[Rfam]
The record is a 91-nucleotide RNA sequence from Proteiniclasticum aestuarii, which matches "SAM riboswitch aptamer (S box leader)" in Rfam.
RNA sequence: UUCUUAUUAAGAGUGAUGGUAGAGAAUUAGCUCAGUGACCACACACCAACCUGCAUAUGCUGUAAGGUGGUAAAGCUAAUAUCAAUGAGGA
Numbered sequence: 001u002u003c004u005u006a007u008u009a010a011g012a013g014u015g016a017u018g019g020u021a022g023a024g025a026a027u028u029a030g031c032u033c034a035g036u037g038a039c040c041a042c043a044c045a046c047c048a049a050c051c052u053g054c055a056u057a058u059g060c061u062g063u064a065a066g067g068u069g070g071u072a073a074a075g076c077u078a079a080u081a082u083c084a085a086u087g088a089g090g091a
Stems, first nucleotide, its partner, number of pairs: 001091008013044003017041002022033003027079004045071004050067002052064004075083001
The family's consensus secondary structure is taken from published work. Gene Ontology term of the family: regulation of gene expression.